[Rfam]
RNA sequence: CCCAUCGCGAGGUGGGAUCCGAAGGAAGCCGGAGGUAAAGCCACGGCCCGAUGAACAAGAACCCCAUAGGAGGCUAGAUCAUCCGGAUGAGCUGGCGAAACACAGCGAAAUCCCAGGGUGCCAAGGGACGGCGGAGUAUAUGGGGCGGGCGCGGGGCGAAGGUUAACGCU
Dot-bracket structure: ((((((....))))))...........(.((...((...(((.(((((((...........((((((.....(((...((.(((((((..((((........))))...))))............))).))...)))..))))))))))).)).)))....))...)).)

Rfam assigns this 170-nucleotide sequence from Neomoorella humiferrea to the family "Group II catalytic intron D1-D4-3".
The base pairs follow the family's consensus structure.
Gene Ontology term of the family: Group II intron splicing.
It scores 132 bits against the family's covariance model.